[Rfam]
RNA sequence: UGAUACCAGGGUCAAAAGGUCCUGCGUUUCAUGCUUGCAUGAAAAAGCAUGACCUUGGGACCCGCAAAACAUGAGAAUGUAGCCCGAUUAGGGCGGAAUUCGAAUGUUUUUAGGAUUGUGCGAGCACGAAGUGCGUAACAAUCCGUGUAUCA
Numbered sequence: 001u002g003a004u005a006c007c008a009g010g011g012u013c014a015a016a017a018g019g020u021c022c023u024g025c026g027u028u029u030c031a032u033g034c035u036u037g038c039a040u041g042a043a044a045a046a047g048c049a050u051g052a053c054c055u056u057g058g059g060a061c062c063c064g065c066a067a068a069a070c071a072u073g074a075g076a077a078u079g080u081a082g083c084c085c086g087a088u089u090a091g092g093g094c095g096g097a098a099u100u101c102g103a104a105u106g107u108u109u110u111u112a113g114g115a116u117u118g119u120g121c122g123a124g125c126a127c128g129a130a131g132u133g134c135g136u137a138a139c140a141a142u143c144c145g146u147g148u149a150u151c152a
Base pairs, nucleotide, nucleotide: 001152002151003150004149005148006147010062011061012060013059016056017055018054019053020052021051023049024048025047027045028044029042030041031040032039033038066110067109068108069107070106071105072104075101076100077099078098082094083093084092085091113144114143115142116141117140118139119138124134125133126132127131
Shown here is a 152-nucleotide sequence from Blautia liquoris, a member of the family "Clostridiales-1 RNA". The family has 194 seed sequences and 1,172 matches in Rfam 15.1. The family's RNA type in Rfam is small RNA. The source organism's lineage runs through Bacteria, Bacillota, Clostridia, Lachnospiraceae and Blautia. The match comes from Rfam's covariance-model search (126 bits).